RNA: Purine riboswitch aptamer
RNA sequence: GCUUGUAGCGCAUAUAAAUCUCGUAUAUCGCCGGGAAUAGGGCCCGGAAGUUUCUACCUGAAAACCGUAAAUUUUCGGACUACGAGGGACGUGAUUGGGAAA
Numbered sequence: 001g002c003u004u005g006u007a008g009c010g011c012a013u014a015u016a017a018a019u020c021u022c023g024u025a026u027a028u029c030g031c032c033g034g035g036a037a038u039a040g041g042g043c044c045c046g047g048a049a050g051u052u053u054c055u056a057c058c059u060g061a062a063a064a065c066c067g068u069a070a071a072u073u074u075u076c077g078g079a080c081u082a083c084g085a086g087g088g089a090c091g092u093g094a095u096u097g098g099g100a101a102a
Stems, first nucleotide, its partner, number of pairs: 019087007031047005058078007